RNA sequence: CCCGACAAAGGCAAACCAGCCGCAAGGUUGGGACGCAAAGUCAAGGGGCGGCGAGUACGUUACUCGACGUUCGCCUGACUACCGAAU
Dot-bracket structure: ..((......((...((((((....))))))..[))..((((.((((((...................))).])))))))..))...

c-di-GMP-I-GGC riboswitch aptamer: an 87-nucleotide RNA sequence from Bythopirellula polymerisocia. Taxonomically the source falls in Bythopirellula (Bacteria, Pseudomonadati, Planctomycetota, Planctomycetia). The literature on the family includes a 2017 paper in Proc Natl Acad Sci U S A by Weinberg et al., "Bioinformatic analysis of riboswitch structures uncovers variant classes with altered ligand specificity".